[Rfam]
Rfam assigns this 75-nucleotide RNA sequence from Alligator sinensis to the family "Mammalian CPEB3 ribozyme". Rfam links the family to the GO term RNA nuclease activity. The organism belongs to Alligator, within Eukaryota.
RNA sequence: UCACAAGGUCAAGGACAUAGCAGAAGCACUCAGGGUGCAACCCUGUCAGAUUCCAGUGAAUCUGCAAAUUCUGCU
Dot-bracket structure: ......[.....[[....((((((((((.......)))..]]]...(((((((....)))))))....)))))))
Numbered sequence: 001u002c003a004c005a006a007g008g009u010c011a012a013g014g015a016c017a018u019a020g021c022a023g024a025a026g027c028a029c030u031c032a033g034g035g036u037g038c039a040a041c042c043c044u045g046u047c048a049g050a051u052u053c054c055a056g057u058g059a060a061u062c063u064g065c066a067a068a069u070u071c072u073g074c075u
Stems, first nucleotide, its partner, number of pairs: 007043001013042002019075007026038003047064007